[Rfam]
RNA sequence: CAGACUUUUAAGGCAGUCCCGUGAGGCUGGCAAAGUAGGGCGACCCGGACGAUUCCCCUGUGCGACAACGUGCGGGGCCGGUUCGUAUCCCCUUGCCGCUUACGAGGCAAGGGGCUUUUUGUU
Number, nucleotide and partner (000 for none) at each position: 001c000002a000003g000004a036005c035006u034007u033008u032009u000010a000011a000012g000013g000014c029015a028016g027017u026018c025019c000020c000021g000022u000023g000024a000025g018026g017027c016028u015029g014030g000031c000032a008033a007034a006035g005036u004037a000038g000039g000040g000041c000042g000043a000044c000045c000046c000047g000048g000049a000050c000051g082052a000053u080054u000055c000056c077057c076058c075059u074060g073061u072062g071063c070064g069065a000066c000067a000068a000069c064070g063071u062072g061073c060074g059075g058076g057077g056078c000079c000080g053081g000082u051083u000084c000085g118086u000087a116088u000089c114090c113091c112092c111093u110094u109095g108096c107097c106098g000099c000100u000101u000102a000103c000104g000105a000106g097107g096108c095109a094110a093111g092112g091113g090114g089115c000116u087117u000118u085119u000120u000121g000122u000123u000